The record is a 297-nucleotide RNA from Medicago truncatula, which matches "MIR2655 microRNA precursor family" in Rfam.

Nucleotides: 297
Stems, first nucleotide, its partner, number of pairs: 002295004007290002023274003027270003031266011043254001046251008
Number, partner (000 for none) and nucleotide at each position: 001000u002295c003294c004293u005292u006000a007290a008289c009000u010000a011000u012000u013000a014000a015000a016000a017000g018000u019000u020000u021000c022000g023274u024273u025272u026000c027270g028269g029268u030000c031266c032265c033264a034263u035262a036261a037260c038259u039258u040257a041256u042000a043254u044000u045000a046251g047250g048249g049248u050247u051246u052245u053244c054000u055000u056000u057000u058000g059000g060000u061000c062000c063000c064000u065000u066000a067000a068000c069000u070000a071000u072000u073000a074000a075000a076000a077000g078000u079000u080000u081000c082000g083000u084000u085000u086000u087000g088000g089000u090000c091000c092000c093000u094000u095000a096000a097000c098000u099000c100000u101000u102000c103000c104000u105000c106000c107000g108000u109000c110000a111000a112000c113000c114000a115000c116000u117000u118000a119000g120000g121000u122000c123000c124000u125000u126000a127000a128000u129000g130000u131000u132000g133000g134000g135000a136000u137000g138000a139000a140000u141000g142000u143000a144000u145000u146000a147000g148000a149000u150000u151000u152000a153000a154000g155000g156000g157000a158000c159000c160000a161000a162000a163000a164000a165000a166000u167000a168000a169000g170000u171000u172000a173000a174000u175000g176000g177000a178000c179000c180000a181000a182000a183000a184000c185000u186000a187000a188000u189000c190000u191000c192000a193000a194000a195000a196000a197000u198000a199000c200000u201000u202000u203000a204000u205000g206000g207000g208000a209000c210000c211000a212000a213000a214000u215000u216000a217000a218000a219000a220000c221000u222000u223000u224000a225000a226000a227000u228000a229000u230000u231000u232000a233000a234000a235000g236000g237000a238000c239000c240000a241000a242000a243000c244053g245052a246051a247050a248049a249048u250047c251046c252000a253000a254043a255000a256041a257040u258039a259038a260037g261036u262035u263034a264033u265032g266031g267000g268029a269028c270027c271000g272025a273024a274023a275000c276000a277000a278000a279000u280000u281000u282000u283000u284000u285000a286000a287000u288000a289008g290007u291000c292005a293004a294003g295002g296000a297000a